Shown here is a 355-nucleotide sequence from Szabonella alba, a member of the family "Alphaproteobacteria transfer-messenger RNA".
[Rfam]
RNA sequence: CCCAUUGCACCCCGCUGCACCGCCCCCUAUAUUGGGUCUGUUCGGGCUUGCCCGGACUAUGGCGAUAAACGCACCUGUAAUAAUCGGAUCGGACCCGGGGGCGGUACCCGGCGGCUCCACCAAUCACCCGGCAUUGCGGGCGGACGGGGCCGAAACAGGAUCGACGAACGACUAAAGAGGCCAGCUUUCGCUCGGUGAGGUACCACCGUUAUCGGUCCGAAAAGUACAGUUGCCAAUGACAACCGUGCUCCGGUCGCUCUGGCUGCGUAAGCAGUUCGAGAGAUCGAAACUUAAGCCCUUGCGCUUAGCCGCGUAAGGCGGGGUCCGCAGGCACCUGGCAACAGAAGCCUGCACU
Numbered sequence: 001c002c003c004a005u006u007g008c009a010c011c012c013c014g015c016u017g018c019a020c021c022g023c024c025c026c027c028u029a030u031a032u033u034g035g036g037u038c039u040g041u042u043c044g045g046g047c048u049u050g051c052c053c054g055g056a057c058u059a060u061g062g063c064g065a066u067a068a069a070c071g072c073a074c075c076u077g078u079a080a081u082a083a084u085c086g087g088a089u090c091g092g093a094c095c096c097g098g099g100g101g102c103g104g105u106a107c108c109c110g111g112c113g114g115c116u117c118c119a120c121c122a123a124u125c126a127c128c129c130g131g132c133a134u135u136g137c138g139g140g141c142g143g144a145c146g147g148g149g150c151c152g153a154a155a156c157a158g159g160a161u162c163g164a165c166g167a168a169c170g171a172c173u174a175a176a177g178a179g180g181c182c183a184g185c186u187u188u189c190g191c192u193c194g195g196u197g198a199g200g201u202a203c204c205a206c207c208g209u210u211a212u213c214g215g216u217c218c219g220a221a222a223a224g225u226a227c228a229g230u231u232g233c234c235a236a237u238g239a240c241a242a243c244c245g246u247g248c249u250c251c252g253g254u255c256g257c258u259c260u261g262g263c264u265g266c267g268u269a270a271g272c273a274g275u276u277c278g279a280g281a282g283a284u285c286g287a288a289a290c291u292u293a294a295g296c297c298c299u300u301g302c303g304c305u306u307a308g309c310c311g312c313g314u315a316a317g318g319c320g321g322g323g324u325c326c327g328c329a330g331g332c333a334c335c336u337g338g339c340a341a342c343a344g345a346a347g348c349c350u351g352c353a354c355u
Stems, first nucleotide, its partner, number of pairs: 040057007061192005071185002074180003085170002089167003095111005112152007193208004199218002202216003321336004327352006
It is annotated as a non-coding RNA gene. About the family: Bacterial tmRNA, also known as 10Sa RNA or SsrA, is named for its dual tRNA and mRNA-like properties. Its role is to liberate the mRNA from a stalled ribosome.